[Rfam]
c-di-AMP riboswitch aptamer (ydaO/yuaA leader): a 174-nucleotide RNA from Anatilimnocola aggregata. It scores 51 bits against the family's covariance model. This family represents a conserved RNA structure found upstream of the ydaO and yuaA genes in Bacillus subtilis and related genes in other bacteria.

RNA sequence: GAGCGGCAGCAGCCGAGUUCUGCACCUUGCGUGCGGGAACGGGGGACCCAGUUUUGCUGGAACGCGAAGUUCGCAUUCCAGCUGGGGGCGCAGGUUGAUUCGACGUUGAAUCCACCAGGGUACUUUCAAGCCCUAGCCCGACAGCUAACCUCGUAGGCGGAUUGGCAACUCGUG
Numbered sequence: 001g002a003g004c005g006g007c008a009g010c011a012g013c014c015g016a017g018u019u020c021u022g023c024a025c026c027u028u029g030c031g032u033g034c035g036g037g038a039a040c041g042g043g044g045g046a047c048c049c050a051g052u053u054u055u056g057c058u059g060g061a062a063c064g065c066g067a068a069g070u071u072c073g074c075a076u077u078c079c080a081g082c083u084g085g086g087g088g089c090g091c092a093g094g095u096u097g098a099u100u101c102g103a104c105g106u107u108g109a110a111u112c113c114a115c116c117a118g119g120g121u122a123c124u125u126u127c128a129a130g131c132c133c134u135a136g137c138c139c140g141a142c143a144g145c146u147a148a149c150c151u152c153g154u155a156g157g158c159g160g161a162u163u164g165g166c167a168a169c170u171c172g173u174g
Base pairs, nucleotide, nucleotide: 012158013157014156018038019037020036021035022034023033024032039154040153041152042151043150044149049085086139087138088137094115095114097112098111099110100109101108102107118133119132120131121130
Record summary: The organism belongs to Anatilimnocola, within Bacteria.